Description
FMN riboswitch aptamer (RFN element): a 154-nucleotide RNA from Azohydromonas caseinilytica.
RNA sequence: AAGCGUUCUCAGGGCGGGGUGCAAUUCCCCACCGGCGGUAUCCGCGGCUUGACCGCGGGAGCCCGCGAGCGCCCGGUGCCUCCCGGCACCGGGGUCAGCAGACCUGGUGAGAAGCCAGGGCCGACGGUCACAGUCCGGAUGAAAGAGAUCGCGU
Numbered sequence: 001a002a003g004c005g006u007u008c009u010c011a012g013g014g015c016g017g018g019g020u021g022c023a024a025u026u027c028c029c030c031a032c033c034g035g036c037g038g039u040a041u042c043c044g045c046g047g048c049u050u051g052a053c054c055g056c057g058g059g060a061g062c063c064c065g066c067g068a069g070c071g072c073c074c075g076g077u078g079c080c081u082c083c084c085g086g087c088a089c090c091g092g093g094g095u096c097a098g099c100a101g102a103c104c105u106g107g108u109g110a111g112a113a114g115c116c117a118g119g120g121c122c123g124a125c126g127g128u129c130a131c132a133g134u135c136c137g138g139a140u141g142a143a144a145g146a147g148a149u150c151g152c153g154u
Stems, first nucleotide, its partner, number of pairs: 003152003007148004017029003031134002033123002035066004061121002069099002103119005125137003
Source information
The match comes from Rfam's covariance-model search (105 bits). The source organism's lineage runs through Bacteria, Pseudomonadota, Betaproteobacteria, Sphaerotilaceae and Azohydromonas.